[Rfam]
RNA sequence: AUACCCCAUGAUGCUCAGGUCCGCCGCAUCUCCUGGGUCCGUGGGGUUGGCCGAUUGGUGUUGGUGUCAAGUGGCCUCCUCGUACCACUGCCAAUUUACCAAUCGGCCCCCAA
Numbered sequence: 001a002u003a004c005c006c007c008a009u010g011a012u013g014c015u016c017a018g019g020u021c022c023g024c025c026g027c028a029u030c031u032c033c034u035g036g037g038u039c040c041g042u043g044g045g046g047u048u049g050g051c052c053g054a055u056u057g058g059u060g061u062u063g064g065u066g067u068c069a070a071g072u073g074g075c076c077u078c079c080u081c082g083u084a085c086c087a088c089u090g091c092c093a094a095u096u097u098a099c100c101a102a103u104c105g106g107c108c109c110c111c112a113a
Stems, first nucleotide, its partner, number of pairs: 003047008014037006049108011
This 113-nucleotide RNA sequence from Aerobium aerolatum belongs to the Rfam family "EcpR1". Lineage of the source: Bacteria > Pseudomonadati > Hyphomicrobiales > Phyllobacteriaceae > Aerobium aerolatum. The family's RNA type in Rfam is small RNA. A reference for the family is del Val et al. (2007), "Identification of differentially expressed small non-coding RNAs in the legume endosymbiont Sinorhizobium meliloti by comparative genomics", Mol Microbiol. Gene Ontology terms of the family: negative regulation of cell cycle, regulation of translation in response to stress and mRNA binding. From the family's description: Perviously named SmelC291, SmrC10, or Sra33.